Overview
A member of the RNA family "Rhizobiales sRNA Atu_At1" from Rhodobium orientis, 110 nucleotides long. NCBI's taxonomy places the organism under Bacteria, Pseudomonadati, Alphaproteobacteria, Rhodobiaceae, Rhodobium. The family's consensus secondary structure was predicted with CMfinder. For this family Rfam cites "Deep sequencing uncovers numerous small RNAs on all four replicons of the plant pathogen Agrobacterium tumefaciens" (Wilms et al., RNA Biol, 2012). It scores 81 bits against the family's covariance model.
RNA sequence: GAAGCGGGCGUGUCAAUCGGGCAUGACGGUACGGAGAACGGAGACGGUUUUCCCGGUUUCCCGCUCUGGCAUCAACGAAUUGGCAGACGAGCUUCUGUCCCGUCCGCCCG
Numbered sequence: 001g002a003a004g005c006g007g008g009c010g011u012g013u014c015a016a017u018c019g020g021g022c023a024u025g026a027c028g029g030u031a032c033g034g035a036g037a038a039c040g041g042a043g044a045c046g047g048u049u050u051u052c053c054c055g056g057u058u059u060c061c062c063g064c065u066c067u068g069g070c071a072u073c074a075a076c077g078a079a080u081u082g083g084c085a086g087a088c089g090a091g092c093u094u095c096u097g098u099c100c101c102g103u104c105c106g107c108c109c110g
Stems, first nucleotide, its partner, number of pairs: 006109004011023004025104003028100002033095004039068005045063002069084002073082001